[Rfam]
RNA sequence: GUACUAUGAUGGUUGCAUAGUUCAAUAGAGUGAAUCAUCAAGGAGGUAACAUUGGCCUGAUGUAUCU
Numbered sequence: 001g002u003a004c005u006a007u008g009a010u011g012g013u014u015g016c017a018u019a020g021u022u023c024a025a026u027a028g029a030g031u032g033a034a035u036c037a038u039c040a041a042g043g044a045g046g047u048a049a050c051a052u053u054g055g056c057c058u059g060a061u062g063u064a065u066c067u
Base pairs, nucleotide, nucleotide: 001065002064003063004062006038007037008036009035010034013028014027015026044053045052
Shown here is a 67-nucleotide RNA sequence from Catagonus wagneri, a member of the family "Small nucleolar RNA SNORD77".
The family's consensus secondary structure was predicted with RNAalifold.
Rfam's curators write: U77 belongs to the C/D family of snoRNAs.
It is annotated as a C/D-box small nucleolar RNA.
The source organism's lineage runs through Eukaryota, Bilateria, Deuterostomia, Theria and Catagonus.
Its Rfam clan is "SNORD77 clan".
Gene Ontology terms of the family: nucleolus and RNA processing.
The match comes from Rfam's covariance-model search (58 bits).